[Rfam]
RNA sequence: AUUCCCUUUCGCCUGACGAUGGACGAUAAUACGCCCCCGGUUUGUAACCGGGAAUCCAGGAGAAGUCAUGUAU
Numbered sequence: 001a002u003u004c005c006c007u008u009u010c011g012c013c014u015g016a017c018g019a020u021g022g023a024c025g026a027u028a029a030u031a032c033g034c035c036c037c038c039g040g041u042u043u044g045u046a047a048c049c050g051g052g053a054a055u056c057c058a059g060g061a062g063a064a065g066u067c068a069u070g071u072a073u
Base pairs, nucleotide, nucleotide: 036052037051038050039049040048041047
Annotation
A member of the RNA family "PyrD leader" from Dickeya dadantii, 73 nucleotides long. Its family is annotated with regulation of gene expression in the Gene Ontology. Taxonomically the source falls in Dickeya dadantii (Bacteria, Pseudomonadota, Gammaproteobacteria, Dickeya). On this family, see Sorensen, Nucleic Acids Res 1994: "Conformational heterogeneity in the Salmonella typhimurium pyrC and pyrD leader mRNAs produced in vivo". Rfam's curators put it in the seed alignment.